RNA sequence: GUACUUCUGGGUUGAUUUAGUCCCUAAUAAAUAAUCUUCAUACAUUUGUAUCACUUUCUCAGCAAAUUUGUUUGUUUUGUUGAUCAUUUCAAGAUAGAAUACCU
Numbered sequence: 001g002u003a004c005u006u007c008u009g010g011g012u013u014g015a016u017u018u019a020g021u022c023c024c025u026a027a028u029a030a031a032u033a034a035u036c037u038u039c040a041u042a043c044a045u046u047u048g049u050a051u052c053a054c055u056u057u058c059u060c061a062g063c064a065a066a067u068u069u070g071u072u073u074g075u076u077u078u079g080u081u082g083a084u085c086a087u088u089u090c091a092a093g094a095u096a097g098a099a100u101a102c103c104u
Stems, first nucleotide, its partner, number of pairs: 041098001044095003059083007
Rfam assigns this 104-nucleotide RNA sequence from Kingdonia uniflora to the family "Small nucleolar RNA snoR99". Its family is annotated with nucleolus and RNA processing in the Gene Ontology. Taxonomically the source falls in Kingdonia (Eukaryota, Streptophyta, Embryophyta, Ranunculales). For this family Rfam cites "Experimental RNomics: identification of 140 candidates for small non-messenger RNAs in the plant Arabidopsis thaliana" (Marker et al., Curr Biol, 2002).